[Rfam]
RNA sequence: AAGAGCCUUCGGGGACGGGUGGAAUUCCCUACCGGCGGUAUGGAAGUUGUGACCUUCCGAGCCCGCGAGCCCUGUACUCAUGUGGGUGAUUGCAGGGUUGAUCUGGUGAGAAGCCAGAGCCGACAGUAAAAGUCUGGAUGGGAGAAGGCGUGA
Numbered sequence: 001a002a003g004a005g006c007c008u009u010c011g012g013g014g015a016c017g018g019g020u021g022g023a024a025u026u027c028c029c030u031a032c033c034g035g036c037g038g039u040a041u042g043g044a045a046g047u048u049g050u051g052a053c054c055u056u057c058c059g060a061g062c063c064c065g066c067g068a069g070c071c072c073u074g075u076a077c078u079c080a081u082g083u084g085g086g087u088g089a090u091u092g093c094a095g096g097g098u099u100g101a102u103c104u105g106g107u108g109a110g111a112a113g114c115c116a117g118a119g120c121c122g123a124c125a126g127u128a129a130a131a132g133u134c135u136g137g138a139u140g141g142g143a144g145a146a147g148g149c150g151u152g153a
Stems, first nucleotide, its partner, number of pairs: 003151001005149006017029003031133002033122002035066004061120002069098007102118005124136003